Annotation
Plastid-ndhJ 3UTR RNA: a 51-nucleotide sequence from Nyssa sinensis. The match comes from Rfam's covariance-model search (44 bits). The literature on the family includes a 2023 paper in Plant Commun by Richter et al., "Retrograde signaling in plants: A critical review focusing on the GUN pathway and beyond". Taxonomically the source falls in Nyssa (Eukaryota, Streptophytina, Spermatophyta, Cornales). Rfam 15.1 lists 869 matches to the family in 155 species. Plastid ndhJ is a non-coding RNA (ncRNA) present in plastids. It was identified as a short stem-loop motif in the 3 prime untranslate region (3UTR) of ndhJ gene. The family's RNA type in Rfam is cis-regulatory element.

[Rfam]
RNA sequence: UGAUGAACUUUGUACCGUGCACAUCACUUAGAUGGGUUUCUCUUUAUCGAG
Numbered sequence: 001u002g003a004u005g006a007a008c009u010u011u012g013u014a015c016c017g018u019g020c021a022c023a024u025c026a027c028u029u030a031g032a033u034g035g036g037u038u039u040c041u042c043u044u045u046a047u048c049g050a051g
Stems, first nucleotide, its partner, number of pairs: 019037002022034004